[Rfam]
RNA: Enterobacterial sRNA STnc240
RNA sequence: UCAAGUUAGGGCAAAAUACGCACAUGCAAUAACCGACGUUUAAACGCGUCGGUUAUUUUUUUGC
Numbered sequence: 001u002c003a004a005g006u007u008a009g010g011g012c013a014a015a016a017u018a019c020g021c022a023c024a025u026g027c028a029a030u031a032a033c034c035g036a037c038g039u040u041u042a043a044a045c046g047c048g049u050c051g052g053u054u055a056u057u058u059u060u061u062u063g064c
Stems, first nucleotide, its partner, number of pairs: 011021002030055009